FuFi-1 RNA: a 162-nucleotide sequence from Enterocloster clostridioformis. The base pairs follow the family's consensus structure, which is taken from published work. By type it is a small RNA.
[Rfam]
RNA sequence: CCUGUCAGCUAAUGGGCGCACACUCCGCAGAACUAAAACUGCAUAAGUGACAGGGUACUUAAAGAAGCGUUUGGGCUAUAAAGCGCGGUGAAAACCUGCAAAGUACAUAGGGUAAAUAAAUUUAGCAUUGAACCGUCAGAAAUAGCCUUCUGGCGGUUUCUU
Numbered sequence: 001c002c003u004g005u006c007a008g009c010u011a012a013u014g015g016g017c018g019c020a021c022a023c024u025c026c027g028c029a030g031a032a033c034u035a036a037a038a039c040u041g042c043a044u045a046a047g048u049g050a051c052a053g054g055g056u057a058c059u060u061a062a063a064g065a066a067g068c069g070u071u072u073g074g075g076c077u078a079u080a081a082a083g084c085g086c087g088g089u090g091a092a093a094a095c096c097u098g099c100a101a102a103g104u105a106c107a108u109a110g111g112g113u114a115a116a117u118a119a120a121u122u123u124a125g126c127a128u129u130g131a132a133c134c135g136u137c138a139g140a141a142a143u144a145g146c147c148u149u150c151u152g153g154c155g156g157u158u159u160c161u162u
Base pairs, nucleotide, nucleotide: 001054002053003052004051005050006049007048027042028041029040030039033125034124035123036122037121055106056105057104058103059102060101067086068085069084070083071082072081074147075146076145077144078143079142087096088095089094130159131158132157133156134155135154136153137152138151139150140149141148